[Rfam]
RNA sequence: GAGAUUUCUAAUUACUGACGGAUAAUUGUGGAAUACCACAGGGGAAUUAGAAAUCUGAAACGCCGACCGUCUGGGCAACAUUU
Numbered sequence: 001g002a003g004a005u006u007u008c009u010a011a012u013u014a015c016u017g018a019c020g021g022a023u024a025a026u027u028g029u030g031g032a033a034u035a036c037c038a039c040a041g042g043g044g045a046a047u048u049a050g051a052a053a054u055c056u057g058a059a060a061c062g063c064c065g066a067c068c069g070u071c072u073g074g075g076c077a078a079c080a081u082u083u
Base pairs, nucleotide, nucleotide: 003055004054005053006052007051008050009049010048011047012046015043016042017071018070019069020068021067028039029038030037031036062076063075064074

This 83-nucleotide RNA sequence from Blautia hydrogenotrophica belongs to the Rfam family "ZMP/ZTP riboswitch aptamer (pfl RNA motif)". The base pairs follow the family's consensus structure, which is taken from published work.